This 101-nucleotide RNA from Peptoclostridium acidaminophilum belongs to the Rfam family "Purine riboswitch aptamer". Pairs were carried over by alignment from the consensus structure, which is taken from published work.

RNA sequence: AUACAGCAAAUUAUAUUUGCUCAUAUAUUCCCGGUAAUAUGGUCCGGGAGUCUCUACAGGAAAUCCGUAAAAUUCCUACUAUGAGCGGAACUUCUAUAUGC
Numbered sequence: 001a002u003a004c005a006g007c008a009a010a011u012u013a014u015a016u017u018u019g020c021u022c023a024u025a026u027a028u029u030c031c032c033g034g035u036a037a038u039a040u041g042g043u044c045c046g047g048g049a050g051u052c053u054c055u056a057c058a059g060g061a062a063a064u065c066c067g068u069a070a071a072a073u074u075c076c077u078a079c080u081a082u083g084a085g086c087g088g089a090a091c092u093u094c095u096a097u098a099u100g101c
Stems, first nucleotide, its partner, number of pairs: 018087008029049006058077005064072001